[Rfam]
RNA sequence: AAAAAAGGAGCAAUAACCCACUUCUUGUUUUAUCAAGGGGGCGUUAUUGCUCCUUUUUUU
Numbered sequence: 001a002a003a004a005a006a007g008g009a010g011c012a013a014u015a016a017c018c019c020a021c022u023u024c025u026u027g028u029u030u031u032a033u034c035a036a037g038g039g040g041g042c043g044u045u046a047u048u049g050c051u052c053c054u055u056u057u058u059u060u
Stems, first nucleotide, its partner, number of pairs: 002058016018041002023038005

Source information
This 60-nucleotide RNA belongs to the Rfam family "Plastid-psbA-2 3UTR RNA". On this family, see Richter et al., Plant Commun 2023: "Retrograde signaling in plants: A critical review focusing on the GUN pathway and beyond". It is annotated as a cis-regulatory element. The base pairs follow the family's consensus structure, which was predicted with LocARNA.